[Rfam]
RNA sequence: GAGUUAUCGUAGCUGGCGAGGUUAAGCCGGGAGAGGCGAAGCCGAAGGGAAACCGAGUCUGAAAAGGGCGAGGAGUCAGCUGCGGUAGACCCGAAACCGGGUGAGCUACCCAUGGGCAGGUUGAAGGUGGGGUAACACCCACUGGAGGACCGAACCAGUUGGCGGUAAAAAGCCAUUGGAUGACCUGUGGGUAGGGGUGAAAAGCCAACCGAACCCGGUGAUAUCUGGUU
Numbered sequence: 001g002a003g004u005u006a007u008c009g010u011a012g013c014u015g016g017c018g019a020g021g022u023u024a025a026g027c028c029g030g031g032a033g034a035g036g037c038g039a040a041g042c043c044g045a046a047g048g049g050a051a052a053c054c055g056a057g058u059c060u061g062a063a064a065a066g067g068g069c070g071a072g073g074a075g076u077c078a079g080c081u082g083c084g085g086u087a088g089a090c091c092c093g094a095a096a097c098c099g100g101g102u103g104a105g106c107u108a109c110c111c112a113u114g115g116g117c118a119g120g121u122u123g124a125a126g127g128u129g130g131g132g133u134a135a136c137a138c139c140c141a142c143u144g145g146a147g148g149a150c151c152g153a154a155c156c157a158g159u160u161g162g163c164g165g166u167a168a169a170a171a172g173c174c175a176u177u178g179g180a181u182g183a184c185c186u187g188u189g190g191g192u193a194g195g196g197g198u199g200a201a202a203a204g205c206c207a208a209c210c211g212a213a214c215c216c217g218g219u220g221a222u223a224u225c226u227g228g229u230u
Stems, first nucleotide, its partner, number of pairs: 005087013020043004026037003047054002057069004090228002093225001097218006106194011117182001119151004126143006155179003160175004196206003
Description:
Bacterial large subunit ribosomal RNA: a 230-nucleotide part of an RNA from Kosmotoga olearia. The sequence is in the family's curated seed alignment.